[Rfam]
RNA sequence: GAACUGGCAUCGGACCCUGGGAAACAGGCAUCUAGCGUAUUAAUAGGUCGCUAGAAGACGGGCAGGCUUCACCACUAGGUAACCUGCCGCCGAGAGGGAAAACCUCUGUGUGGUUGUGCGCACGUCGUUGUCGGAAGA
Numbered sequence: 001g002a003a004c005u006g007g008c009a010u011c012g013g014a015c016c017c018u019g020g021g022a023a024a025c026a027g028g029c030a031u032c033u034a035g036c037g038u039a040u041u042a043a044u045a046g047g048u049c050g051c052u053a054g055a056a057g058a059c060g061g062g063c064a065g066g067c068u069u070c071a072c073c074a075c076u077a078g079g080u081a082a083c084c085u086g087c088c089g090c091c092g093a094g095a096g097g098g099a100a101a102a103c104c105u106c107u108g109u110g111u112g113g114u115u116g117u118g119c120g121c122a123c124g125u126c127g128u129u130g131u132c133g134g135a136a137g138a
Stems, first nucleotide, its partner, number of pairs: 004134006011127003016028004032054006039048003061088006068082002071080003093107005108123005
This 138-nucleotide sequence from Dianthovirus trifolii belongs to the Rfam family "3'TE-DR1 translation enhancer element". Lineage of the source: Viruses > Tolucaviricetes > Tolivirales > Tombusviridae > Dianthovirus trifolii. Rfam links the family to the GO term positive regulation of translation, ncRNA-mediated.